[Rfam]
RNA sequence: ACUGUAGUGUCAAAGUGCUUACAGUGCAGGUAGUCGUCUAAUAUCUACUGCAGUGAAGGCACUUUAAGCACUAUAGU
Numbered sequence: 001a002c003u004g005u006a007g008u009g010u011c012a013a014a015g016u017g018c019u020u021a022c023a024g025u026g027c028a029g030g031u032a033g034u035c036g037u038c039u040a041a042u043a044u045c046u047a048c049u050g051c052a053g054u055g056a057a058g059g060c061a062c063u064u065u066a067a068g069c070a071c072u073a074u075a076g077u
Stems, first nucleotide, its partner, number of pairs: 004074004009069002013064008022055002025052003029049005
Shown here is a 77-nucleotide RNA from Oncorhynchus kisutch, a member of the family "mir-17 microRNA precursor family". The base pairs follow the family's consensus structure, which was predicted with RNAalifold. A search with the family's covariance model found it, with a score of 72 bits. Taxonomically the source falls in Oncorhynchus (Eukaryota, Teleostomi, Actinopterygii, Osteoglossocephalai). Rfam 15.1 lists 4,687 matches to the family in 648 species. This family represents the microRNA (miRNA) precursor mir-17, family, which includes mir-20, mir-91, and mir-103. miRNAs are transcribed as ~70nt precursors (modelled here) and subsequently processed by the Dicer enzyme to give a ~22nt product. In this case the mature sequence comes from the 3' arm of the precursor. The extents of the hairpin precursors are not generally known and are estimated based on hairpin prediction.